Overview: Shown here is a 77-nucleotide sequence from Chaetops frenatus, a member of the family "mir-30 microRNA precursor family". For this family Rfam cites "Identification of novel genes coding for small expressed RNAs" (Lagos-Quintana et al., Science, 2001). Rfam describes the family as follows. This family consists of the mammalian microRNA (miRNA) precursor mir-30a. Animal miRNAs are transcribed as ~70nt precursors and subsequently processed by the Dicer enzyme to give a ~22nt product. The family's consensus secondary structure was predicted with PFOLD. NCBI's taxonomy places the organism under Eukaryota, Sauropsida, Saurischia, Telluraves, Chaetops. The family has 175 seed sequences and 3,879 matches in Rfam 15.1.
RNA sequence: ACAGGUAUUGUAAACAUCCUACACUCUCAGCUGUGGAAACUAAGAGAAGCUGGGAGAAGGCUGUUUACUCUCCCUGC
Numbered sequence: 001a002c003a004g005g006u007a008u009u010g011u012a013a014a015c016a017u018c019c020u021a022c023a024c025u026c027u028c029a030g031c032u033g034u035g036g037a038a039a040c041u042a043a044g045a046g047a048a049g050c051u052g053g054g055a056g057a058a059g060g061c062u063g064u065u066u067a068c069u070c071u072c073c074c075u076g077c
Stems, first nucleotide, its partner, number of pairs: 002076004010068007018060003024056009